[Rfam]
RNA sequence: AAGGCGUAAUCCGAAAAGCCUCAGAAUAGAGUAGGUA
Numbered sequence: 001a002a003g004g005c006g007u008a009a010u011c012c013g014a015a016a017a018g019c020c021u022c023a024g025a026a027u028a029g030a031g032u033a034g035g036u037a
Base pairs, nucleotide, nucleotide: 002021003020004019005018011035012034
Rfam assigns this 37-nucleotide RNA from Lacinutrix sp. WUR7 to the family "DUF805b RNA". By type it is a cis-regulatory element. The family's consensus secondary structure is taken from published work. Clan: DUF805 clan.